[Rfam]
RNA sequence: CGUAUCUAAUAGCAAACUAUGCGAAAGCAUGGGACGCAAAGCCACGGGUCUAAAGCAUAGCAAUGACAGCCGGGCUGCCUCA
Dot-bracket structure: ...........((...((((((....))))))...))..((((.((((((....((...))...)))..)))))))......
Numbered sequence: 001c002g003u004a005u006c007u008a009a010u011a012g013c014a015a016a017c018u019a020u021g022c023g024a025a026a027g028c029a030u031g032g033g034a035c036g037c038a039a040a041g042c043c044a045c046g047g048g049u050c051u052a053a054a055g056c057a058u059a060g061c062a063a064u065g066a067c068a069g070c071c072g073g074g075c076u077g078c079c080u081c082a
Stems, first nucleotide, its partner, number of pairs: 012037002017032006040076004045072003048067003055061002